Rfam assigns this 66-nucleotide sequence from Palleronia aestuarii to the family "L2-Alphaproteobacteria ribosomal protein leader". A search with the family's covariance model found it, with a score of 67 bits. The base pairs follow the family's consensus structure, which is taken from published work. NCBI's taxonomy places the organism under Bacteria, Pseudomonadati, Rhodobacterales, Roseobacteraceae, Palleronia. The literature on the family includes a 2020 paper in BMC Microbiol by Eckert and Weinberg, "Discovery of 20 novel ribosomal leader candidates in bacteria and archaea".
RNA sequence: GGGGACCUCCGGGGCCCUUUAACAUCGGAUCCAUGGGGAUCCGCUAUAGCUAACGGAAGACAGAAA
Numbered sequence: 001g002g003g004g005a006c007c008u009c010c011g012g013g014g015c016c017c018u019u020u021a022a023c024a025u026c027g028g029a030u031c032c033a034u035g036g037g038g039a040u041c042c043g044c045u046a047u048a049g050c051u052a053a054c055g056g057a058a059g060a061c062a063g064a065a066a
Stems, first nucleotide, its partner, number of pairs: 001018004006014003027042006